RNA sequence: GCAGACUCACUCUGUACUGAACUGCAGUCUUCAGUUCAGGUGCUUUUUCUGUCUGCGAGAGUAAUAGUUCACAGGAGUGACAAUUGCCUUCUUGCCUGUAGAAGGCCGUUACAAUCGCUGUUGGGACAUUGCU
Numbered sequence: 001g002c003a004g005a006c007u008c009a010c011u012c013u014g015u016a017c018u019g020a021a022c023u024g025c026a027g028u029c030u031u032c033a034g035u036u037c038a039g040g041u042g043c044u045u046u047u048u049c050u051g052u053c054u055g056c057g058a059g060a061g062u063a064a065u066a067g068u069u070c071a072c073a074g075g076a077g078u079g080a081c082a083a084u085u086g087c088c089u090u091c092u093u094g095c096c097u098g099u100a101g102a103a104g105g106c107c108g109u110u111a112c113a114a115u116c117g118c119u120g121u122u123g124g125g126a127c128a129u130u131g132c133u
Base pairs, nucleotide, nucleotide: 001056002055003054004053005052006051014043015042016041017040018038019037020036022034023033024032068124069123071121072120073119074118075116076115078113079112086106087105088104089103
A member of the RNA family "Small nucleolar RNA SNORA77" from Apaloderma vittatum, 133 nucleotides long. Pairs were carried over by alignment from the consensus structure, which was predicted with RNAalifold. Rfam describes the family as follows. ACA63 (SNORA77) is a member of the H/ACA class of snoRNAs that guide the sites of modification of uridines to pseudouridines. This snoRNA was identified by computational screening and its expression in mouse experimentally verified by Northern blot and primer extension analysis. ACA63 is proposed to guide the pseudouridylation of 18S rRNA U814. Taxonomically the source falls in Apaloderma (Eukaryota, Bilateria, Teleostomi, Coelurosauria). The match comes from Rfam's covariance-model search (57 bits). The family's RNA type in Rfam is H/ACA-box small nucleolar RNA. A reference for the family is Schattner et al. (2006), "A computational screen for mammalian pseudouridylation guide H/ACA RNAs", RNA.